[Rfam]
RNA sequence: UGCUCCUGUCAGUUUGGCUGGUUUGCAUCAGCUGAGUACAGUGCUGUGCAAAUCCAUGCAAAACUGAUUGUGGCA
Numbered sequence: 001u002g003c004u005c006c007u008g009u010c011a012g013u014u015u016g017g018c019u020g021g022u023u024u025g026c027a028u029c030a031g032c033u034g035a036g037u038a039c040a041g042u043g044c045u046g047u048g049c050a051a052a053u054c055c056a057u058g059c060a061a062a063a064c065u066g067a068u069u070g071u072g073g074c075a
Base pairs, nucleotide, nucleotide: 003073004072006070008068009067010066011065012064013063014062015061017059018058020055021054022052023051024050025049026048027047028046030045031044032043
The record is a 75-nucleotide sequence from Hymenochirus boettgeri, which matches "mir-19 microRNA precursor family" in Rfam.
Rfam links the family to the GO terms miRNA-mediated post-transcriptional gene silencing and RISC complex.
The literature on the family includes a 2003 paper in Dev Cell by Houbaviy et al., "Embryonic stem cell-specific MicroRNAs".